[Rfam]
RNA sequence: GCAAAACCCAAAGGAGUGAGCUUCAGAAAACAGGUGGUGGUGUUACUACACUUGUGUUCUUAGGUCACCCCUUUGGGGCAAUU
Dot-bracket structure: ......((..((((.((((.....((((.(((((((............))))))).))))....)))).))))..))......
Source information
The family of this 83-nucleotide sequence from Kingdonia uniflora is "MIR398 microRNA precursor family". The organism belongs to Kingdonia, within Eukaryota. It scores 55 bits against the family's covariance model. The literature on the family includes a 2004 paper in Mol Cell by Jones-Rhoades and Bartel, "Computational identification of plant microRNAs and their targets, including a stress-induced miRNA".